RNA: Alphaproteobacterial sRNA ar35
Organism: Kaistia hirudinis
RNA sequence: AGAGCGGCAAGUCGUCCGCUGAGAACCUGCAGGCGGCCUGACGCCACAGCGCAUCUGGUUUUUGACCACGGAUGUACUGGCACUGACUGCUGAUGCGCUUACGAAGGCCGGGCCAGUUCCCGGCCUUUUCGUUA
Numbered sequence: 001a002g003a004g005c006g007g008c009a010a011g012u013c014g015u016c017c018g019c020u021g022a023g024a025a026c027c028u029g030c031a032g033g034c035g036g037c038c039u040g041a042c043g044c045c046a047c048a049g050c051g052c053a054u055c056u057g058g059u060u061u062u063u064g065a066c067c068a069c070g071g072a073u074g075u076a077c078u079g080g081c082a083c084u085g086a087c088u089g090c091u092g093a094u095g096c097g098c099u100u101a102c103g104a105a106g107g108c109c110g111g112g113c114c115a116g117u118u119c120c121c122g123g124c125c126u127u128u129u130c131g132u133u134a
Stems, first nucleotide, its partner, number of pairs: 004044003008040002016036005048099007057088004063082002066080003101132003104127008
Dot-bracket structure: ...(((.((......(((((...........)))))..)).)))...(((((((..((((..((.(((.........)))))..))))....))))))).(((((((((((........))))))))..)))..